A member of the RNA family "DUF3800-IX RNA", 69 nucleotides long. From the family's description: Actinobacteria, Firmicutes (1 example), Nitrospirae, Proteobacteria, Verrucomicrobia (1 example). The base pairs follow the family's consensus structure, which is taken from published work. Rfam classes the family as a small RNA.

RNA sequence: UCGCCCCCACCGAUAAGGUAGCCACGAGAGGCUGUCUUUCUCAUAACGAGAAUAGGUGGGGGUGUUUUA
Numbered sequence: 001u002c003g004c005c006c007c008c009a010c011c012g013a014u015a016a017g018g019u020a021g022c023c024a025c026g027a028g029a030g031g032c033u034g035u036c037u038u039u040c041u042c043a044u045a046a047c048g049a050g051a052a053u054a055g056g057u058g059g060g061g062g063u064g065u066u067u068u069a
Stems, first nucleotide, its partner, number of pairs: 002064010017036007038052005